This 243-nucleotide RNA from Nakaseomyces glabratus belongs to the Rfam family "Small nucleolar RNA snR11". The match comes from Rfam's covariance-model search (128 bits). The family is grouped with related families in Rfam's "SNORA3 clan". Rfam classes the family as an H/ACA-box small nucleolar RNA. Taxonomically the source falls in Nakaseomyces (Eukaryota, Fungi, Dikarya, Saccharomycetes).

RNA sequence: UACAAUGUCUUUUAUUUAAUAGACGCCCAGAGUCACGGUGCAAUCUUUUUCUAACAUAGAUGUUAUGAGUAACCCUCACGGUCUGGAUGUCGUUUUACCUUCUCCAGACUGCCGUGCUCGCGGUUGUUCUUAGAGCAAACCAGUACUCUAUUCCAUUGAAAUAUAUGGAGGGGUAGUGAGUGGAUCUUCCCUGGAAGUAUGAAUUUGAAUAUACUUAUGAUUAGAUUUUCUUCACGCACAUUU
Numbered sequence: 001u002a003c004a005a006u007g008u009c010u011u012u013u014a015u016u017u018a019a020u021a022g023a024c025g026c027c028c029a030g031a032g033u034c035a036c037g038g039u040g041c042a043a044u045c046u047u048u049u050u051c052u053a054a055c056a057u058a059g060a061u062g063u064u065a066u067g068a069g070u071a072a073c074c075c076u077c078a079c080g081g082u083c084u085g086g087a088u089g090u091c092g093u094u095u096u097a098c099c100u101u102c103u104c105c106a107g108a109c110u111g112c113c114g115u116g117c118u119c120g121c122g123g124u125u126g127u128u129c130u131u132a133g134a135g136c137a138a139a140c141c142a143g144u145a146c147u148c149u150a151u152u153c154c155a156u157u158g159a160a161a162u163a164u165a166u167g168g169a170g171g172g173g174u175a176g177u178g179a180g181u182g183g184a185u186c187u188u189c190c191c192u193g194g195a196a197g198u199a200u201g202a203a204u205u206u207g208a209a210u211a212u213a214c215u216u217a218u219g220a221u222u223a224g225a226u227u228u229u230c231u232u233c234a235c236g237c238a239c240a241u242u243u
Stems, first nucleotide, its partner, number of pairs: 021130003024126002027123002035115004043061003066078004079111009144175006176235004180230001182228006195216007
Dot-bracket structure: ....................(((((.((......((((....(((.............)))....((((.....))))(((((((((...............)))))))))))))......)).)).))).............((((((....................))))))(((((.((((((.......(((((((........)))))))......)))))).).))))........